This 78-nucleotide RNA from Mangrovibacter sp. MFB070 belongs to the Rfam family "ABC transporter regulator". A reference for the family is Chao et al. (2012), "An atlas of Hfq-bound transcripts reveals 3' UTRs as a genomic reservoir of regulatory small RNAs", EMBO J. NCBI's taxonomy places the organism under Bacteria, Pseudomonadati, Pseudomonadota, Enterobacterales, Mangrovibacter. It is annotated as a cis-regulatory element.

RNA sequence: UUACCCAAUCGUGAUGUGGUUAUUGCAAUCUUAACUUUUUGAUUGGCAGGGCAAUAUUUUUGUUGCCCUUUUUAUUUU
Numbered sequence: 001u002u003a004c005c006c007a008a009u010c011g012u013g014a015u016g017u018g019g020u021u022a023u024u025g026c027a028a029u030c031u032u033a034a035c036u037u038u039u040u041g042a043u044u045g046g047c048a049g050g051g052c053a054a055u056a057u058u059u060u061u062g063u064u065g066c067c068c069u070u071u072u073u074a075u076u077u078u
Stems, first nucleotide, its partner, number of pairs: 026045005048069009